[Rfam]
RNA sequence: GGUUUCUAUUGGUGUAAAUCAUAAAUCCAAGCGGCUCAAUUUUCAAUUUAAGAUGAAAAAGAAUUUCUCAUUGGUAGCAAAUGGUUAUCCAUUGAGCAGAAAAAAUAUUAU
Dot-bracket structure: ........((((.......................))))..........................(.(.((.((((((.....)))))).))......).)..........